RNA: SAM riboswitch aptamer (S box leader)
RNA sequence: UUCUUAUCGAGAGAGAUGGAGGGACGUGGCCCUAUGAAAUCUCAGCAACCAGCCGAAAGGUCAGGUGCUAAAUCCAUCAAGCUGUAUGAAGUUUGAAAGAUAAGAA
Numbered sequence: 001u002u003c004u005u006a007u008c009g010a011g012a013g014a015g016a017u018g019g020a021g022g023g024a025c026g027u028g029g030c031c032c033u034a035u036g037a038a039a040u041c042u043c044a045g046c047a048a049c050c051a052g053c054c055g056a057a058a059g060g061u062c063a064g065g066u067g068c069u070a071a072a073u074c075c076a077u078c079a080a081g082c083u084g085u086a087u088g089a090a091g092u093u094u095g096a097a098a099g100a101u102a103a104g105a106a
Stems, first nucleotide, its partner, number of pairs: 001106008013043005021032003026077004044069004049065002052061003073098001078095006
Dot-bracket structure: ((((((((....(((((...(((..[[[[)))......)))))((((.((.(((....)))..))))))...(]]]]((((((......))))))..)))))))))